[Rfam]
A member of the RNA family "Small nucleolar RNA SNORD74" from Piliocolobus tephrosceles, 80 nucleotides long.

RNA sequence: UUUGUCUACUUCUUAUGAAGCCUAUGUUGGUAGAGACAUCUGAGAGUAUUGACUAAUGCCAACAGCUUAAAUGGGAAAAA
Numbered sequence: 001u002u003u004g005u006c007u008a009c010u011u012c013u014u015a016u017g018a019a020g021c022c023u024a025u026g027u028u029g030g031u032a033g034a035g036a037c038a039u040c041u042g043a044g045a046g047u048a049u050u051g052a053c054u055a056a057u058g059c060c061a062a063c064a065g066c067u068u069a070a071a072u073g074g075g076a077a078a079a080a
Stems, first nucleotide, its partner, number of pairs: 001080003005076001
The family's RNA type in Rfam is C/D-box small nucleolar RNA. The organism belongs to Piliocolobus, within Eukaryota.